RNA: Glycine riboswitch aptamer
Organism: Acetobacter senegalensis
RNA sequence: UUAUCGCGCAGAGGGAGAGACUGGCCUAGCGCCAGCGCCGAAGGAGCAACCGCCCCGGAAACUCUCAGGCAAAAGGACCUUGCGCGAUAA
Numbered sequence: 001u002u003a004u005c006g007c008g009c010a011g012a013g014g015g016a017g018a019g020a021c022u023g024g025c026c027u028a029g030c031g032c033c034a035g036c037g038c039c040g041a042a043g044g045a046g047c048a049a050c051c052g053c054c055c056c057g058g059a060a061a062c063u064c065u066c067a068g069g070c071a072a073a074a075g076g077a078c079c080u081u082g083c084g085c086g087a088u089a090a
Base pairs, nucleotide, nucleotide: 006085007084008083009082010081012080013079014078021035022034023033024032037070038069039068040066041065044064045063046062050058051057